Shown here is a 170-nucleotide RNA from Kineococcus radiotolerans, a member of the family "c-di-AMP riboswitch aptamer (ydaO/yuaA leader)". A reference for the family is Barrick et al. (2004), "New RNA motifs suggest an expanded scope for riboswitches in bacterial genetic control", Proc Natl Acad Sci U S A. The organism belongs to Kineococcus radiotolerans, within Bacteria.
[Rfam]
RNA sequence: CUGCCCACCGCGCCGGUAGCAGAACCCGUGGGCAGGAGCGGGGGACCCAAGGUUCCUCGGACGACCGCACCCGUGCGGGAGUCCUCGGGGUGAAGCCGCGUCCGCGCGGCCGGGUCACACCUUCGACCCGAACCCGACAGCUGACCUCGCAGGCGUUGGAGGCCAACCAU
Numbered sequence: 001c002u003g004c005c006c007a008c009c010g011c012g013c014c015g016g017u018a019g020c021a022g023a024a025c026c027c028g029u030g031g032g033c034a035g036g037a038g039c040g041g042g043g044g045a046c047c048c049a050a051g052g053u054u055c056c057u058c059g060g061a062c063g064a065c066c067g068c069a070c071c072c073g074u075g076c077g078g079g080a081g082u083c084c085u086c087g088g089g090g091u092g093a094a095g096c097c098g099c100g101u102c103c104g105c106g107c108g109g110c111c112g113g114g115u116c117a118c119a120c121c122u123u124c125g126a127c128c129c130g131a132a133c134c135c136g137a138c139a140g141c142u143g144a145c146c147u148c149g150c151a152g153g154c155g156u157u158g159g160a161g162g163c164c165a166a167c168c169a170u
Stems, first nucleotide, its partner, number of pairs: 001035008038150006048087001088135003096109004112129004